[Rfam]
RNA sequence: GUACCCCGCGUGGGAGAGACCGCCCGAGUUGUUCGGGGCGGCGCCGAAGGGGCAGCUUCCUCCCCGGAACCUCUCAGGCAGAAGGACCACGUGGGCAGG
Dot-bracket structure: .....((((((((......((((((..........)))))).(((((..(((...(.........)....))))).))).......)))))))).....
Glycine riboswitch aptamer: a 99-nucleotide RNA from Micromonospora haikouensis.
This family represents the bacterial glycine riboswitch.
For this family Rfam cites "A glycine-dependent riboswitch that uses cooperative binding to control gene expression" (Mandal et al., Science, 2004).